[Rfam]
RNA: SAM riboswitch aptamer (S box leader)
Organism: Mariniflexile fucanivorans
RNA sequence: UUGUUAUCAAGAAAGGUAGAGGGAAUAGACCCGUUGAAGCCUUGGCAACCCUUUAGCUCUUAAAGAAGGUGCUACGUUCUACUAGUAUUUUAAAGAAUAUUGGAAAGAUAACGA
Numbered sequence: 001u002u003g004u005u006a007u008c009a010a011g012a013a014a015g016g017u018a019g020a021g022g023g024a025a026u027a028g029a030c031c032c033g034u035u036g037a038a039g040c041c042u043u044g045g046c047a048a049c050c051c052u053u054u055a056g057c058u059c060u061u062a063a064a065g066a067a068g069g070u071g072c073u074a075c076g077u078u079c080u081a082c083u084a085g086u087a088u089u090u091u092a093a094a095g096a097a098u099a100u101u102g103g104a105a106a107g108a109u110a111a112c113g114a
Stems, first nucleotide, its partner, number of pairs: 001114008013043005021032003026081004044073004049069002051065004077106001082103008